RNA sequence: UGUUGAAUGAUGAAAAAAUCAAUAGGAUUUCCAUUAAUAUGUUCAUAGAUGAGAUUACAACCAACUACUUCCGACAACA
Numbered sequence: 001u002g003u004u005g006a007a008u009g010a011u012g013a014a015a016a017a018a019u020c021a022a023u024a025g026g027a028u029u030u031c032c033a034u035u036a037a038u039a040u041g042u043u044c045a046u047a048g049a050u051g052a053g054a055u056u057a058c059a060a061c062c063a064a065c066u067a068c069u070u071c072c073g074a075c076a077a078c079a
Base pairs, nucleotide, nucleotide: 001079002078003077004076005075
RNA: Small nucleolar RNA R12
Organism: Lathyrus oleraceus